[Rfam]
RNA sequence: UGCGAACGACAGGGGAGCGCACGUUGCGCUGAGAUCGUGCCGAGGUAGGGCACUAAACCCUCGAACCUGAACCGGUUAGCACCGGCGGAGGAAGUCGAGACUCACCCGUU
Numbered sequence: 001u002g003c004g005a006a007c008g009a010c011a012g013g014g015g016a017g018c019g020c021a022c023g024u025u026g027c028g029c030u031g032a033g034a035u036c037g038u039g040c041c042g043a044g045g046u047a048g049g050g051c052a053c054u055a056a057a058c059c060c061u062c063g064a065a066c067c068u069g070a071a072c073c074g075g076u077u078a079g080c081a082c083c084g085g086c087g088g089a090g091g092a093a094g095u096c097g098a099g100a101c102u103c104a105c106c107c108g109u110u
Stems, first nucleotide, its partner, number of pairs: 007097004011061004017029005037053004066091003072085004

Shown here is a 110-nucleotide RNA sequence from Dermacoccus sp. 147Ba, a member of the family "TPP riboswitch aptamer (THI element)". Lineage of the source: Bacteria > Bacillati > Actinomycetes > Micrococcales > Dermacoccus. A search with the family's covariance model found it, with a score of 60 bits.